[Rfam]
RNA sequence: CAUCCAUCGAGACCGGCUGAGGGACAGGCCCGAAGACGCCGGGGCAACCUGAUGGAGCGCGCUGCGAACGCAGCCUGCUCCCUCGCGGUGCCAAAUCCUGCGGGGACCUGGGCGUCCACCGGAAGAUGGUUG
Numbered sequence: 001c002a003u004c005c006a007u008c009g010a011g012a013c014c015g016g017c018u019g020a021g022g023g024a025c026a027g028g029c030c031c032g033a034a035g036a037c038g039c040c041g042g043g044g045c046a047a048c049c050u051g052a053u054g055g056a057g058c059g060c061g062c063u064g065c066g067a068a069c070g071c072a073g074c075c076u077g078c079u080c081c082c083u084c085g086c087g088g089u090g091c092c093a094a095a096u097c098c099u100g101c102g103g104g105g106a107c108c109u110g111g112g113c114g115u116c117c118a119c120c121g122g123a124a125g126a127u128g129g130u131u132g
Stems, first nucleotide, its partner, number of pairs: 001132002004129005013042005021031003025100004043092004048088002096124001101121003105117001
The record is a 132-nucleotide RNA sequence from Thermomonas sp. HDW16, which matches "SAM riboswitch aptamer (S box leader)" in Rfam. It scores 68 bits against the family's covariance model. NCBI's taxonomy places the organism under Bacteria, Pseudomonadota, Gammaproteobacteria, Lysobacterales, Thermomonas. The family's consensus secondary structure is taken from published work.